This 77-nucleotide RNA sequence from Alligator sinensis belongs to the Rfam family "Mammalian CPEB3 ribozyme".
RNA sequence: GGUUGCAAGUAUGAGGCCACAGCAGAAGUGCCCCCAGCCCAGCCCAGUCAGAUUCCAACAAAUCUGUGAGUUCUGCU
Dot-bracket structure: ............[.[[[...((((((((.(.......).).]]]]...((((((......))))))....)))))))
Gene Ontology term of the family: RNA nuclease activity. The base pairs follow the family's consensus structure, which is taken from published work. For this family Rfam cites "Autocatalytic RNA cleavage in the human beta-globin pre-mRNA promotes transcription termination" (Teixeira et al., Nature, 2004).